[Rfam]
RNA sequence: ACCCCCUGGCUAUAGGCAAAGAGACACCUGAUUUGUUGUGAUGCUCUUAUAUCAGUCGGGUGCAAAGCAGACAUACAGUCCUUUGUUUAUCCUAGCUUGAUGCCUGGGUUGGUGGCUAGAGCUAUUUUAUGCCUGGGGCACAUAA
Numbered sequence: 001a002c003c004c005c006c007u008g009g010c011u012a013u014a015g016g017c018a019a020a021g022a023g024a025c026a027c028c029u030g031a032u033u034u035g036u037u038g039u040g041a042u043g044c045u046c047u048u049a050u051a052u053c054a055g056u057c058g059g060g061u062g063c064a065a066a067g068c069a070g071a072c073a074u075a076c077a078g079u080c081c082u083u084u085g086u087u088u089a090u091c092c093u094a095g096c097u098u099g100a101u102g103c104c105u106g107g108g109u110u111g112g113u114g115g116c117u118a119g120a121g122c123u124a125u126u127u128u129a130u131g132c133c134u135g136g137g138g139c140a141c142a143u144a145a
Stems, first nucleotide, its partner, number of pairs: 003062001005060004013054001015052001019048003023042001025040003084140005099133001101131001105129003110124002113121001

Record summary: The family of this 145-nucleotide RNA sequence from Pteropus alecto is "Small nucleolar RNA SNORA48". The snoRNA ACA 48 has been identified to guide pseudouridylation of the residue U3797 in the 28S rRNA subunit. The family is grouped with related families in Rfam's "SNORA48 clan". Rfam classes the family as an H/ACA-box small nucleolar RNA.